[Rfam]
RNA: eL15-Euryarchaeota ribosomal protein leader
RNA sequence: CCUGUACGGCAUUGCCGCCACAGGUCGGGAUGUGAUCCGCGGGGACCGCCCCCGGUCGGGAUUGAACCAGGAA
Numbered sequence: 001c002c003u004g005u006a007c008g009g010c011a012u013u014g015c016c017g018c019c020a021c022a023g024g025u026c027g028g029g030a031u032g033u034g035a036u037c038c039g040c041g042g043g044g045a046c047c048g049c050c051c052c053c054g055g056u057c058g059g060g061a062u063u064g065a066a067c068c069a070g071g072a073a
Stems, first nucleotide, its partner, number of pairs: 001024005027068002034063005